The family of this 168-nucleotide sequence from Candidatus Protofrankia datiscae is "M-box riboswitch aptamer (ykoK leader)". A search with the family's covariance model found it, with a score of 137 bits. On this family, see Barrick et al., Proc Natl Acad Sci U S A 2004: "New RNA motifs suggest an expanded scope for riboswitches in bacterial genetic control". The pairing is the family consensus, mapped onto this sequence. M-box riboswitch, also know as ykoK leader is described as a metaloregulatory RNA that sense divalent metals and function as a genetic control element of genes related to divalent metal transport in bacteria. It was first reported upstream of the B.subtilis ykoK gene and genes with related functions in other bacteria.
RNA sequence: GCGGCACCUCGUUCGGUGAGGCGUCUGCACGGACACAGGCCACUGACCCCGAACGUCGAGAGACGCCCCGGGUCAGGACAGCUCUCCCCGGGCUAAGGGGUGGGCCCAGGUGGCUUCCUGGUUGGGAUUACGCCGUGCAGUGCCAAAGCUCUGACGAGGAGGGGUGCU
Number, nucleotide and partner (000 for none) at each position: 001g000002c000003g000004g000005c166006a165007c164008c163009u162010c161011g155012u154013u096014c000015g150016g149017u148018g000019a000020g144021g143022c142023g000024u000025c140026u139027g138028c137029a136030c135031g134032g133033a000034c000035a000036c000037a000038g000039g114040c113041c112042a111043c110044u000045g074046a073047c072048c071049c070050c000051g000052a000053a000054c065055g064056u063057c062058g000059a000060g000061a000062g057063a056064c055065g054066c000067c000068c000069c000070g049071g048072g047073u046074c045075a000076g000077g000078a000079c000080a000081g105082c104083u103084c102085u000086c000087c099088c098089c097090g000091g000092g000093c000094u000095a000096a013097g089098g088099g087100g000101u000102g084103g083104g082105c081106c000107c000108a000109g000110g043111u042112g041113g040114c039115u000116u127117c126118c125119u000120g000121g000122u000123u000124g000125g118126g117127a116128u000129u000130a000131c000132g000133c032134c031135g030136u029137g028138c027139a026140g025141u000142g022143c021144c020145a000146a000147a000148g017149c016150u015151c000152u000153g000154a012155c011156g000157a000158g000159g000160a000161g010162g009163g008164g007165u006166g005167c000168u000